[Rfam]
RNA: ZMP/ZTP riboswitch aptamer (pfl RNA motif)
Organism: Microvirga tunisiensis
RNA sequence: GUGUGUUCACGUGACUGGCGAGGCAAGGUGGAUCACCACCGGGGAGCGUGAACCGCAAGACGCUGCUCGCCUGGGCACCCGCG
Number, nucleotide and partner (000 for none) at each position: 001g000002u000003g000004u000005g053006u052007u051008c050009a049010c048011g047012u046013g000014a000015c043016u042017g071018g070019c069020g068021a067022g000023g000024c000025a000026a000027g000028g039029u038030g037031g036032a000033u000034c000035a000036c031037c030038a029039c028040c000041g000042g016043g015044g000045a000046g012047c011048g010049u009050g008051a007052a006053c005054c000055g000056c000057a000058a000059g000060a000061c000062g076063c075064u074065g000066c000067u021068c020069g019070c018071c017072u000073g000074g064075g063076c062077a000078c000079c000080c000081g000082c000083g000